[Rfam]
Overview
The family of this 196-nucleotide sequence from Theobroma umbraticum is "MIR159 microRNA precursor family". The literature on the family includes a 2004 paper in Mol Cell by Jones-Rhoades and Bartel, "Computational identification of plant microRNAs and their targets, including a stress-induced miRNA". A search with the family's covariance model found it, with a score of 120 bits.
Nucleotides: 196
Stems, first nucleotide, its partner, number of pairs: 013182008024171006036159001057138002060135003066129004074121001
Number, partner (000 for none) and nucleotide at each position: 001000g002000u003000g004000u005000u006000c007000g008000g009000a010000g011000u012000g013182g014181a015180g016179c017178u018177c019176c020175u021000u022000g023000a024171a025170g026169u027168c028167c029166a030000a031000u032000a033000g034000a035000g036159g037000u038000u039000c040000u041000u042000g043000c044000a045000g046000g047000g048000u049000a050000u051000a052000u053000u054000g055000a056000g057138c058137u059000g060135c061134u062133g063000a064000g065000c066129u067128a068127u069126g070000g071000a072000u073000c074121c075000c076000a077000c078000a079000g080000c081000c082000c083000u084000a085000u086000c087000c088000c089000u090000u091000c092000u093000u094000u095000a096000a097000g098000a099000g100000g101000u102000g103000u104000u105000c106000c107000a108000g109000g110000a111000u112000a113000g114000g115000c116000u117000u118000g119000c120000g121074g122000c123000u124000u125000g126069c127068a128067u129066a130000u131000c132000u133062c134061a135060g136000g137058a138057g139000c140000u141000g142000c143000a144000u145000u146000a147000c148000c149000u150000u151000a152000g153000u154000c155000a156000g157000a158000u159036c160000c161000u162000u163000g164000u165000u166029u167028g168027g169026a170025u171024u172000g173000a174000a175020g176019g177018g178017a179016g180015c181014u182013c183000u184000a185000c186000a187000c188000c189000u190000c191000u192000c193000u194000c195000c196000u